[Rfam]
RNA sequence: UCGACUGUACUCGAACAGGAUCAUUUAUGUAGUGAUUUCCUUUCGUUCGCAAGAGUACUCUUGACAAAACCCUAAACCGUGAUGAGGAGAUGUAUACCCCACCCUAAUGGAGGUGUAGUCAGUACAGUCAUGCACUCCACUUCGAUGAUCCAUCCCGUAUGGGACUGGGGUGUGGGUAGCGCUGAGCGGUU
Numbered sequence: 001u002c003g004a005c006u007g008u009a010c011u012c013g014a015a016c017a018g019g020a021u022c023a024u025u026u027a028u029g030u031a032g033u034g035a036u037u038u039c040c041u042u043u044c045g046u047u048c049g050c051a052a053g054a055g056u057a058c059u060c061u062u063g064a065c066a067a068a069a070c071c072c073u074a075a076a077c078c079g080u081g082a083u084g085a086g087g088a089g090a091u092g093u094a095u096a097c098c099c100c101a102c103c104c105u106a107a108u109g110g111a112g113g114u115g116u117a118g119u120c121a122g123u124a125c126a127g128u129c130a131u132g133c134a135c136u137c138c139a140c141u142u143c144g145a146u147g148a149u150c151c152a153u154c155c156c157g158u159a160u161g162g163g164a165c166u167g168g169g170g171u172g173u174g175g176g177u178a179g180c181g182c183u184g185a186g187c188g189g190u191u
Base pairs, nucleotide, nucleotide: 003040006035008034009033010032011031017028019026020025043067045065046064047063049061051059076190077189078188079187080186095178096177097176098175099174100172101171102170103169104168105167108152109151110150111149117141118140119139122135153164154163155162156161

ACEA small nucleolar RNA U3: a 191-nucleotide sequence from Perkinsus marinus. It scores 105 bits against the family's covariance model. Clan: U3 clan. From the family's description: Small nucleolar RNAs (snoRNAs) are involved in the processing and modification of rRNA in the nucleolus. There are two main classes of snoRNAs: the box C/D class, and the box H/ACA class. U3 snoRNA is a member of the box C/D class. Indeed, the box C/D element is a subset of the six short sequence elements found in all U3 snoRNAs, namely boxes A, A', B, C, C', and D. The U3 snoRNA secondary structure is characterised by a small 5' domain (with boxes A and A'), and a larger 3' domain (with boxes B, C, C', and D), the two domains being linked by a single-stranded hinge. Boxes B and C form the B/C motif, which appears to be exclusive to U3 snoRNAs, and boxes C' and D form the C'/D motif. The latter is functionally similar to the C/D motifs found in other snoRNAs. The 5' domain and the hinge region act as a pre-rRNA-binding domain. The 3' domain has conserved protein-binding sites. Both the box B/C and box C'/D motifs are sufficient for nuclear retention of U3 snoRNA. The box C'/D motif is also necessary for nucleolar localisation, stability and hyper-methylation of U3 snoRNA. Both box B/C and C'/D motifs are involved in specific protein interactions and are necessary for the rRNA processing functions of U3 snoRNA. NCBI's taxonomy places the organism under Eukaryota, Perkinsida, Perkinsidae, Perkinsus, Perkinsus marinus.